[Rfam]
RNA: SAM riboswitch aptamer (S box leader)
Organism: Gottschalkia acidurici
RNA sequence: ACCUUAUCAAGAGAGGUGGAGGGACAGGCCCUAUGAAACCCGGCAACCGAUAAUUUAAAUUAUUUGGUGCUAAAUCCUGCAGGACUAGAGUUCUGGAAGAUGAGGU
Numbered sequence: 001a002c003c004u005u006a007u008c009a010a011g012a013g014a015g016g017u018g019g020a021g022g023g024a025c026a027g028g029c030c031c032u033a034u035g036a037a038a039c040c041c042g043g044c045a046a047c048c049g050a051u052a053a054u055u056u057a058a059a060u061u062a063u064u065u066g067g068u069g070c071u072a073a074a075u076c077c078u079g080c081a082g083g084a085c086u087a088g089a090g091u092u093c094u095g096g097a098a099g100a101u102g103a104g105g106u
Stems, first nucleotide, its partner, number of pairs: 001106008013041001015040003021031003025079004042071004047067002049063001052060001075098001080095006